[Rfam]
RNA: mir-8517 microRNA precursor family
RNA sequence: UUAUAGUUACGUUUUAAAUAUUGAAAGGUUUUGUCCCUCUCUAACUCAGAACAAAUUGUUCUUUGACAAAUUGUGACAAAACAGUUCAAUAGCUACAACGUCCUGUAAC
Numbered sequence: 001u002u003a004u005a006g007u008u009a010c011g012u013u014u015u016a017a018a019u020a021u022u023g024a025a026a027g028g029u030u031u032u033g034u035c036c037c038u039c040u041c042u043a044a045c046u047c048a049g050a051a052c053a054a055a056u057u058g059u060u061c062u063u064u065g066a067c068a069a070a071u072u073g074u075g076a077c078a079a080a081a082c083a084g085u086u087c088a089a090u091a092g093c094u095a096c097a098a099c100g101u102c103c104u105g106u107a108a109c
Stems, first nucleotide, its partner, number of pairs: 001108006012098002015095002019091007028082002030070006050060004